[Rfam]
RNA: ASpks TB sRNA
Organism: Krasilnikovia cinnamomea
RNA sequence: CUUCACCGACCCCAGCAGCAGCGGAGUCUGGCGGUCCUGCCCGUACGUGGCCAGCAGCGCCUGCGCCUC
Numbered sequence: 001c002u003u004c005a006c007c008g009a010c011c012c013c014a015g016c017a018g019c020a021g022c023g024g025a026g027u028c029u030g031g032c033g034g035u036c037c038u039g040c041c042c043g044u045a046c047g048u049g050g051c052c053a054g055c056a057g058c059g060c061c062u063g064c065g066c067c068u069c
Stems, first nucleotide, its partner, number of pairs: 016024001029065002032059002037054003041050003